[Rfam]
RNA sequence: UUGCAUCGGCACCUUGGCUCUAGACUGCUUACUGUGAAACUGUGCUAUAGGAACAGUAACAGUCUACAGUCAUGGCUACUGACGUAUG
Numbered sequence: 001u002u003g004c005a006u007c008g009g010c011a012c013c014u015u016g017g018c019u020c021u022a023g024a025c026u027g028c029u030u031a032c033u034g035u036g037a038a039a040c041u042g043u044g045c046u047a048u049a050g051g052a053a054c055a056g057u058a059a060c061a062g063u064c065u066a067c068a069g070u071c072a073u074g075g076c077u078a079c080u081g082a083c084g085u086a087u088g
Stems, first nucleotide, its partner, number of pairs: 012075002015072004023064005029059005